[Rfam]
RNA sequence: CCUACCAAGGAGCGUUGCGACGGCUUCGGCCGCCAGGCUUGGCAGGUGCUUUCCUUUUGGAAAACGACGCUCGCGAUCU
Numbered sequence: 001c002c003u004a005c006c007a008a009g010g011a012g013c014g015u016u017g018c019g020a021c022g023g024c025u026u027c028g029g030c031c032g033c034c035a036g037g038c039u040u041g042g043c044a045g046g047u048g049c050u051u052u053c054c055u056u057u058u059g060g061a062a063a064a065c066g067a068c069g070c071u072c073g074c075g076a077u078c079u
Stems, first nucleotide, its partner, number of pairs: 002045002005042004021032004
Dot-bracket structure: .((.((((............((((....))))......)))).))..................................
RNA: SAH (S-adenosyl-L-homocysteine) riboswitch aptamer